[Rfam]
RNA sequence: UUUACAACUUCUUAGGUAGAGAUUUGAGGGCGUCUUAAGAGGCAACUCUUAAGAUUAUCACUGGGUGAAUUUCUGGAACUUCCUUAGAGCCACUCUCCCUACAACGUAAUCCGAAAGGGUAAGCGUGAUAGGUUAAAAAGCAGAGUGGAUUGGAUGAUCAGCAGCCGAGCUCCUGUUCCGAAAGGAUGGAGAAGGUUCAACGACUAGGACGUACCACCUAAGUAAUUGUCAAUUGACAAUUAUAUGGUGAUGAGGUCCGUAGGGGAUGAGGCUUCCCCGAAGUGCCCAGCCCCAAAAUUGAUUGUUUACAAUAGGCAAUUAAUUUUGGGUGAAGAUAUAGUCUGGCAGUCAUCGAAAGGUGAUU
Numbered sequence: 001u002u003u004a005c006a007a008c009u010u011c012u013u014a015g016g017u018a019g020a021g022a023u024u025u026g027a028g029g030g031c032g033u034c035u036u037a038a039g040a041g042g043c044a045a046c047u048c049u050u051a052a053g054a055u056u057a058u059c060a061c062u063g064g065g066u067g068a069a070u071u072u073c074u075g076g077a078a079c080u081u082c083c084u085u086a087g088a089g090c091c092a093c094u095c096u097c098c099c100u101a102c103a104a105c106g107u108a109a110u111c112c113g114a115a116a117g118g119g120u121a122a123g124c125g126u127g128a129u130a131g132g133u134u135a136a137a138a139a140g141c142a143g144a145g146u147g148g149a150u151u152g153g154a155u156g157a158u159c160a161g162c163a164g165c166c167g168a169g170c171u172c173c174u175g176u177u178c179c180g181a182a183a184g185g186a187u188g189g190a191g192a193a194g195g196u197u198c199a200a201c202g203a204c205u206a207g208g209a210c211g212u213a214c215c216a217c218c219u220a221a222g223u224a225a226u227u228g229u230c231a232a233u234u235g236a237c238a239a240u241u242a243u244a245u246g247g248u249g250a251u252g253a254g255g256u257c258c259g260u261a262g263g264g265g266a267u268g269a270g271g272c273u274u275c276c277c278c279g280a281a282g283u284g285c286c287c288a289g290c291c292c293c294a295a296a297a298u299u300g301a302u303u304g305u306u307u308a309c310a311a312u313a314g315g316c317a318a319u320u321a322a323u324u325u326u327g328g329g330u331g332a333a334g335a336u337a338u339a340g341u342c343u344g345g346c347a348g349u350c351a352u353c354g355a356a357a358g359g360u361g362a363u364u
Stems, first nucleotide, its partner, number of pairs: 007033002010030004039049001041047001061289004066284002071163001073161004081154003164196002171189002177184001200343001202342005291329009349362005

The family of this 364-nucleotide RNA from Caloranaerobacter sp. TR13 is "Group I catalytic intron". The literature on the family includes a 1996 paper in Science by Cate et al., "Crystal structure of a group I ribozyme domain: principles of RNA packing". Rfam 15.1 lists 5,602 matches to the family in 1,395 species. Rfam links the family to the GO term Group I intron splicing. It scores 73 bits against the family's covariance model. Rfam's curators write: Group I catalytic introns are large self-splicing ribozymes.